[Rfam]
RNA sequence: GGAGAUGACGAUGAGGAUAUAAAGCUCCCUCUUCUGAGUUCAGCUUAAGUAACUUGGUGGCAGAAUCGAACCUAAUAUCACUAGCCACCAUUGAGUCA
Numbered sequence: 001g002g003a004g005a006u007g008a009c010g011a012u013g014a015g016g017a018u019a020u021a022a023a024g025c026u027c028c029c030u031c032u033u034c035u036g037a038g039u040u041c042a043g044c045u046u047a048a049g050u051a052a053c054u055u056g057g058u059g060g061c062a063g064a065a066u067c068g069a070a071c072c073u074a075a076u077a078u079c080a081c082u083a084g085c086c087a088c089c090a091u092u093g094a095g096u097c098a
Stems, first nucleotide, its partner, number of pairs: 006098004
Small nucleolar RNA R30/Z108: a 98-nucleotide RNA sequence from Raphanus sativus. The organism belongs to Raphanus, within Eukaryota. Its Rfam clan is "SNORD100 clan". It scores 82 bits against the family's covariance model. Rfam describes the family as follows. snoR30 is a C/D box small nucleolar RNA which acts as a methylation guide for 18S ribosomal RNA in plants.